[Rfam]
RNA sequence: GGAAGAGUAAUCGACCGUGGAGAGGAAGCGUGGAGCGUAAAUCAUGAGCCGAGGUACACGAACUGCAUAGAAGGCGCUGCCGAGCAGGGCGAGCGGGCUAAUAUUCGCGAAGCUCUUGUGGUCAAGGCGAAGUGGCGUAGAUGCGGCGGUUGUGUGAUGAAGGAGUGCGGC
Dot-bracket structure: ((..((....))..))...........((......(....(((((((((((...........((((((.....(((.(((...(..((((..((((........))))...))))............)...))).)))..))))))))))).))))))....)......))

Shown here is a 171-nucleotide RNA sequence from Massilia violaceinigra, a member of the family "Group II catalytic intron D1-D4-3". Pairs were carried over by alignment from the consensus structure. Lineage of the source: Bacteria > Pseudomonadati > Pseudomonadota > Oxalobacteraceae > Massilia.